About this RNA
The record is a 75-nucleotide sequence, which matches "tRNA" in Rfam. It is annotated as a transfer RNA. It is one of the family's seed sequences. Pairs were carried over by alignment from the consensus structure, which is taken from published work. Transfer RNA (tRNA) molecules are approximately 80 nucleotides in length.

RNA sequence: AUUAGGGUGGCAGAGCCAGGAAAUUGCGUAAGACUUAAAACCUUGUUCCCAGAGGUUCAAAUCCUCUCCCUAAUA
Dot-bracket structure: (((((((..((((..........)))).((((.........)))).....(((((.......)))))))))))).
Numbered sequence: 001a002u003u004a005g006g007g008u009g010g011c012a013g014a015g016c017c018a019g020g021a022a023a024u025u026g027c028g029u030a031a032g033a034c035u036u037a038a039a040a041c042c043u044u045g046u047u048c049c050c051a052g053a054g055g056u057u058c059a060a061a062u063c064c065u066c067u068c069c070c071u072a073a074u075a
Stems, first nucleotide, its partner, number of pairs: 001074007010027004029045004051067005